c-di-AMP riboswitch aptamer (ydaO/yuaA leader): a 154-nucleotide RNA sequence from Actinoplanes sp. ATCC 53533.
The match comes from Rfam's covariance-model search (81 bits).
The base pairs follow the family's consensus structure.
The organism belongs to Actinoplanes, within Bacteria.
RNA sequence: CGGAGACCGCCGCCUAAUCGCCACAUCGCGAGCCGGGGAACCAAGGCCCAGGUAGUGGGGUGAAUCCGCACCGUGUGCAGGGAACGCGGGCGGUAGGGAUCGCUUCCGUCCCGAACCCGUCAGCUAACUCGGCAGGCGGCCGACGGAAGGAAGG
Dot-bracket structure: ..........((((...(((........)))((((((....((............))(((.....((((....................))))..((((.........))))...))).........)))))).))))................
Annotation: From the family's description: This family represents a conserved RNA structure found upstream of the ydaO and yuaA genes in Bacillus subtilis and related genes in other bacteria.